[Rfam]
RNA sequence: CUGCAUGCCAGUAGACCUUAUCUGGCUCUUCUGAUAGCUUGAUGAGGGGGAUAGUGCAUGCUACAGAAACGUGGGGCUGCUGUAGGUUGUGAUCAGCCUGGAUGUGGCUGGUUGAACUAUGGUACCCUGACAUAC
Numbered sequence: 001c002u003g004c005a006u007g008c009c010a011g012u013a014g015a016c017c018u019u020a021u022c023u024g025g026c027u028c029u030u031c032u033g034a035u036a037g038c039u040u041g042a043u044g045a046g047g048g049g050g051a052u053a054g055u056g057c058a059u060g061c062u063a064c065a066g067a068a069a070c071g072u073g074g075g076g077c078u079g080c081u082g083u084a085g086g087u088u089g090u091g092a093u094c095a096g097c098c099u100g101g102a103u104g105u106g107g108c109u110g111g112u113u114g115a116a117c118u119a120u121g122g123u124a125c126c127c128u129g130a131c132a133u134a135c
Stems, first nucleotide, its partner, number of pairs: 003061006016047007024039001073128004078124001081121003093111005